This 192-nucleotide sequence from Antrihabitans stalactiti belongs to the Rfam family "Actinobacteria sRNA Ms_IGR-5".
[Rfam]
RNA sequence: ACACGAGAGAGGAGGUGGUCUGAAGUUGGUUAUACGAAGGACAUGUGAGGUGGCUGUCCGCUAGCCGCUACCGCUGAGGGGUUCUCGACCGCGCGAGCGGCUGGUGAAUCCAAGGCAGCUACCCGGCCCCCGAGCCCCCGGUCCGUCCGACCGGGAUCUGCGAACGCGCAGAAGGCUCGGGGGCUGUUCGCG
Numbered sequence: 001a002c003a004c005g006a007g008a009g010a011g012g013a014g015g016u017g018g019u020c021u022g023a024a025g026u027u028g029g030u031u032a033u034a035c036g037a038a039g040g041a042c043a044u045g046u047g048a049g050g051u052g053g054c055u056g057u058c059c060g061c062u063a064g065c066c067g068c069u070a071c072c073g074c075u076g077a078g079g080g081g082u083u084c085u086c087g088a089c090c091g092c093g094c095g096a097g098c099g100g101c102u103g104g105u106g107a108a109u110c111c112a113a114g115g116c117a118g119c120u121a122c123c124c125g126g127c128c129c130c131c132g133a134g135c136c137c138c139c140g141g142u143c144c145g146u147c148c149g150a151c152c153g154g155g156a157u158c159u160g161c162g163a164a165c166g167c168g169c170a171g172a173a174g175g176c177u178c179g180g181g182g183g184c185u186g187u188u189c190g191c192g
Stems, first nucleotide, its partner, number of pairs: 014058006059106007067098003072093003124186013137155006
By type it is a small RNA. On this family, see Li et al., RNA 2013: "Identification of small RNAs in Mycobacterium smegmatis using heterologous Hfq".